Source information: Shown here is a 112-nucleotide RNA sequence from Mycobacterium sp. Root135, a member of the family "SAM (S-adenosyl methionine) riboswitch aptamer". The source organism's lineage runs through Bacteria, Bacillati, Actinomycetota, Actinomycetes and Mycobacterium. A search with the family's covariance model found it, with a score of 72 bits.
RNA sequence: CUUCACGAGACACCGUCGCCAAGCUCCGACUGGGCGGUGCGCCAACCCCACGCUCGUGGGUGGCUCGGAUGACGAAGCGGCGGGCGCCAAUCGGCGUCGGCAAGAGCGCCUC
Dot-bracket structure: ((((....(..((((((....((......)).)))))).)(((..(((.((....))))).))).........))))..((.((((((....)))))).))...........